[Rfam]
RNA sequence: CCUGCAAGCUAGGGGUGUCCGACUCGCAUCGGACUGAGAUCAUACCCUCAGAACCUGACCUGGUUAAUACCAGCGGAGGAAAGCGUUGCUUGAGGUUA
Numbered sequence: 001c002c003u004g005c006a007a008g009c010u011a012g013g014g015g016u017g018u019c020c021g022a023c024u025c026g027c028a029u030c031g032g033a034c035u036g037a038g039a040u041c042a043u044a045c046c047c048u049c050a051g052a053a054c055c056u057g058a059c060c061u062g063g064u065u066a067a068u069a070c071c072a073g074c075g076g077a078g079g080a081a082a083g084c085g086u087u088g089c090u091u092g093a094g095g096u097u098a
Stems, first nucleotide, its partner, number of pairs: 006086001008084003011048004016042001017034005054079003060073004
Rfam assigns this 98-nucleotide RNA from Phormidium tenue to the family "TPP riboswitch aptamer (THI element)". Lineage of the source: Bacteria > Bacillati > Cyanophyceae > Oscillatoriophycideae > Phormidium tenue. About the family: Vitamin B(1) in its active form thiamin pyrophosphate (TPP) is an essential coenzyme that is synthesised by coupling of pyrimidine and thiazole moieties in bacteria. Rfam links the family to the GO term thiamine pyrophosphate binding. A search with the family's covariance model found it, with a score of 69 bits.